[Rfam]
RNA sequence: UUAAAUAUUUGUUAGGUGAGGCUCCUAUAUGGACACAAGCUACUGCCGCGAAAGAAUCGAGAGACUCUUAGUUGGUAGAACAGGAAUAAUCGUGAAGGUUAUUCAUAAAGUAGCUGAUACGGUGUAUCUACGCCCUAUAGUGCUAAAGCUCAACAUUGAUCAUGAUG
Numbered sequence: 001u002u003a004a005a006u007a008u009u010u011g012u013u014a015g016g017u018g019a020g021g022c023u024c025c026u027a028u029a030u031g032g033a034c035a036c037a038a039g040c041u042a043c044u045g046c047c048g049c050g051a052a053a054g055a056a057u058c059g060a061g062a063g064a065c066u067c068u069u070a071g072u073u074g075g076u077a078g079a080a081c082a083g084g085a086a087u088a089a090u091c092g093u094g095a096a097g098g099u100u101a102u103u104c105a106u107a108a109a110g111u112a113g114c115u116g117a118u119a120c121g122g123u124g125u126a127u128c129u130a131c132g133c134c135c136u137a138u139a140g141u142g143c144u145a146a147a148g149c150u151c152a153a154c155a156u157u158g159a160u161c162a163u164g165a166u167g
Base pairs, nucleotide, nucleotide: 005163006162009159010158011154012153013096015150016149017148020144021143022142025140026139027138028137029136031134032133039114040113041112042111043110045076046075047074048073054067055066057064058063084104085103086102089099090098091097116128117127118126
The family of this 167-nucleotide sequence from Floricoccus tropicus is "M-box riboswitch aptamer (ykoK leader)". On this family, see Ramesh et al., J Mol Biol 2011: "Insights into metalloregulation by M-box riboswitch RNAs via structural analysis of manganese-bound complexes". Lineage of the source: Bacteria > Bacillati > Bacillota > Streptococcaceae > Floricoccus. Gene Ontology terms of the family: regulation of gene expression and response to magnesium ion.